The family of this 89-nucleotide RNA sequence from Lacrimispora saccharolytica is "c-di-GMP-I riboswitch aptamer". Pairs were carried over by alignment from the consensus structure, which is taken from published work. The source organism's lineage runs through Bacteria, Bacillati, Lachnospirales, Lacrimispora and Lacrimispora saccharolytica. Gene Ontology term of the family: cyclic-di-GMP binding.

RNA sequence: AUAAGCUAUGGGCAAACCCGGCAAAAGCCGGGGACGCAAAGCCGAGGGUCUAAGGUGUCUUAGGACGCUAUGAUAGUCUGGCUGCUGAC
Numbered sequence: 001a002u003a004a005g006c007u008a009u010g011g012g013c014a015a016a017c018c019c020g021g022c023a024a025a026a027g028c029c030g031g032g033g034a035c036g037c038a039a040a041g042c043c044g045a046g047g048g049u050c051u052a053a054g055g056u057g058u059c060u061u062a063g064g065a066c067g068c069u070a071u072g073a074u075a076g077u078c079u080g081g082c083u084g085c086u087g088a089c
Stems, first nucleotide, its partner, number of pairs: 012037002017032006040083004045079003048074003055068004